[Rfam]
RNA: Small nucleolar RNA U3
Organism: Sciurus vulgaris
RNA sequence: AAGACUAUACUUUCAGGGAUCAUUUCUGUAGUAUGUUACUAGAGAAGUUUCUCUGAUCGUGUAGAGUACCGGAAACCACGAGGAGGAGUUGAGUGUUCUCUUCUGAGCGUGAAGCUGGCUCUUGGUAUUGCUUUACUGCAAUCUGCCUUUUGCCAUUGAUGAUCGUUCUUAAUCUUCUCGGAGAUUAAGAGGGAGAGAACACAGUCUGAGUGGU
Numbered sequence: 001a002a003g004a005c006u007a008u009a010c011u012u013u014c015a016g017g018g019a020u021c022a023u024u025u026c027u028g029u030a031g032u033a034u035g036u037u038a039c040u041a042g043a044g045a046a047g048u049u050u051c052u053c054u055g056a057u058c059g060u061g062u063a064g065a066g067u068a069c070c071g072g073a074a075a076c077c078a079c080g081a082g083g084a085g086g087a088g089u090u091g092a093g094u095g096u097u098c099u100c101u102u103c104u105g106a107g108c109g110u111g112a113a114g115c116u117g118g119c120u121c122u123u124g125g126u127a128u129u130g131c132u133u134u135a136c137u138g139c140a141a142u143c144u145g146c147c148u149u150u151u152g153c154c155a156u157u158g159a160u161g162a163u164c165g166u167u168c169u170u171a172a173u174c175u176u177c178u179c180g181g182a183g184a185u186u187a188a189g190a191g192g193g194a195g196a197g198a199a200c201a202c203a204g205u206c207u208g209a210g211u212g213g214u
Base pairs, nucleotide, nucleotide: 002040003039006035007034008033009032010031011030014028015027016026017025018024049065050064054061075214076213077212078211079210093202094201095200096199097198098197099196100195101194102193103192104191107166108165109164117154118153119152124147125146126145127142128141129140130139131138169188170187171186172185173184174183175182176181